RNA sequence: GCAUGAGUUUGGAUUUAUGGCAAACCUGUUCCCCUGGGUCUCUUAUAGUAUCUCAUGCCAGAGCCAACGUAGCCCCACACCAUUGCCUGGCCACUGUCCGUAGGUUGUUGGCACUGAAAUGUGUUCCACAGUA
Dot-bracket structure: (((((.((......((((((.(.(((.........)).).).)))))).)).).))))............(((.(.....((...(((((((..........)))))..))...))....).)))........
RNA: Small nucleolar RNA SNORA42/SNORA80 family